[Rfam]
RNA sequence: GGCGCAGCGUUGUCACGUGUCUGCCUGUCUACACUUGCUGUGCAGAACAUGCUCUCGCCUGUACAGCAGGCACAGACAGGCAGCCACAUGACAACCAGCCA
Number, nucleotide and partner (000 for none) at each position: 001g000002g000003c000004g000005c000006a000007g000008c000009g000010u000011u000012g000013u000014c000015a000016c000017g087018u086019g085020u000021c000022u082023g081024c080025c079026u078027g077028u076029c075030u074031a000032c000033a000034c070035u000036u068037g067038c066039u065040g064041u063042g000043c061044a060045g059046a000047a000048c000049a000050u000051g000052c000053u000054c000055u000056c000057g000058c000059c045060u044061g043062u000063a041064c040065a039066g038067c037068a036069g000070g034071c000072a000073c000074a030075g029076a028077c027078a026079g025080g024081c023082a022083g000084c000085c019086a018087c017088a000089u000090g000091a000092c000093a000094a000095c000096c000097a000098g000099c000100c000101a000
A member of the RNA family "mir-214 microRNA precursor family" from Varanus komodoensis, 101 nucleotides long. A reference for the family is Shao et al. (2008), "Identification of novel chicken microRNAs and analysis of their genomic organization", Gene.